[Rfam]
RNA sequence: GUGCCAUUUCAAGGUUGACGCUGUGAUUUAAGAAGCUAACACAGAAGGUUGAAUUCAGUCUCCGUGAAACCCAGAGCAGAGAUCAGAGAACUCUUUGGAUCCUCUCUGGAGUUACAACU
Numbered sequence: 001g002u003g004c005c006a007u008u009u010c011a012a013g014g015u016u017g018a019c020g021c022u023g024u025g026a027u028u029u030a031a032g033a034a035g036c037u038a039a040c041a042c043a044g045a046a047g048g049u050u051g052a053a054u055u056c057a058g059u060c061u062c063c064g065u066g067a068a069a070c071c072c073a074g075a076g077c078a079g080a081g082a083u084c085a086g087a088g089a090a091c092u093c094u095u096u097g098g099a100u101c102c103u104c105u106c107u108g109g110a111g112u113u114a115c116a117a118c119u
Base pairs, nucleotide, nucleotide: 002051003050005048007046008045009044014040015039016038017037019035021032058113060111061110062109063108064107071098072097073096074095079093080092081091083090
RNA: Small nucleolar RNA SNORA26